[Rfam]
The family of this 180-nucleotide sequence from Enterococcus pallens is "Enterococcus sRNA 2410". The source organism's lineage runs through Bacteria, Bacillota, Bacilli, Enterococcus and Enterococcus pallens. A reference for the family is Sinel et al. (2017), "Small RNAs in vancomycin-resistant Enterococcus faecium involved in daptomycin response and resistance", Sci Rep. Rfam describes the family as follows. Produced as 2 transcripts on Northern blot.

RNA sequence: UUAGCUAUUAUUAGAUACGUUUGUAUUCAUCAGGAUACAAACGGACAGGUUUGUAUCUAUGAUGGCUAAUGUGCUUCAACGCGUCACCAGCCACGUAGGUAACUCUAAGUGGCUGCGAAUAGUGCGAAAAUAGGUAUUGAUUUCUUUCGUAAUUUUCAAUCGUCCACUUAGACUAUCUAA
Numbered sequence: 001u002u003a004g005c006u007a008u009u010a011u012u013a014g015a016u017a018c019g020u021u022u023g024u025a026u027u028c029a030u031c032a033g034g035a036u037a038c039a040a041a042c043g044g045a046c047a048g049g050u051u052u053g054u055a056u057c058u059a060u061g062a063u064g065g066c067u068a069a070u071g072u073g074c075u076u077c078a079a080c081g082c083g084u085c086a087c088c089a090g091c092c093a094c095g096u097a098g099g100u101a102a103c104u105c106u107a108a109g110u111g112g113c114u115g116c117g118a119a120u121a122g123u124g125c126g127a128a129a130a131u132a133g134g135u136a137u138u139g140a141u142u143u144c145u146u147u148c149g150u151a152a153u154u155u156u157c158a159a160u161c162g163u164c165c166a167c168u169u170a171g172a173c174u175a176u177c178u179a180a
Stems, first nucleotide, its partner, number of pairs: 001069007012059006019042010073131001075129002080126001084121001089114006096107003132156003135151002